Shown here is a 122-nucleotide RNA from Rhizobacter sp., a member of the family "Burkholderia RNA 11". The source organism's lineage runs through Bacteria, Pseudomonadati, Betaproteobacteria, Burkholderiales and Rhizobacter. Gene Ontology term of the family: protein binding. For this family Rfam cites "Experimental identification of small non-coding regulatory RNAs in the opportunistic human pathogen Burkholderia cenocepacia J2315" (Ramos et al., Genomics, 2013). Co-purified with Hfq, expression confirmed by Northern blot. Predicted target marZ. Overlaps coding sequence. The match comes from Rfam's covariance-model search (98 bits).
[Rfam]
RNA sequence: GCAACCUGAAAUUGGCACGCGAAAACACCGUGGUGUUCCGAUCGCUGCUGGGCAUCUCGUGGAUGUGGUUUUUUGGCGCGGUGUUCUUGGCGCAAUUCCCUUCAUUUGCCAAAGAAGUGCUG
Numbered sequence: 001g002c003a004a005c006c007u008g009a010a011a012u013u014g015g016c017a018c019g020c021g022a023a024a025a026c027a028c029c030g031u032g033g034u035g036u037u038c039c040g041a042u043c044g045c046u047g048c049u050g051g052g053c054a055u056c057u058c059g060u061g062g063a064u065g066u067g068g069u070u071u072u073u074u075g076g077c078g079c080g081g082u083g084u085u086c087u088u089g090g091c092g093c094a095a096u097u098c099c100c101u102u103c104a105u106u107u108g109c110c111a112a113a114g115a116a117g118u119g120c121u122g
Stems, first nucleotide, its partner, number of pairs: 010049001012047001014045001017042001021038003025034002051121005057115002060112001062110001063105003067099002071095002074092002077089002080087002